[Rfam]
RNA sequence: AAGUGUUACAGCUCUUUUAGAAUUUGUCUGUGGAUUUUCCGGUUUUUACCGAAGACCCCAA
Numbered sequence: 001a002a003g004u005g006u007u008a009c010a011g012c013u014c015u016u017u018u019a020g021a022a023u024u025u026g027u028c029u030g031u032g033g034a035u036u037u038u039c040c041g042g043u044u045u046u047u048a049c050c051g052a053a054g055a056c057c058c059c060a061a
Base pairs, nucleotide, nucleotide: 032058033057035055036054037053038052039051041050042049043048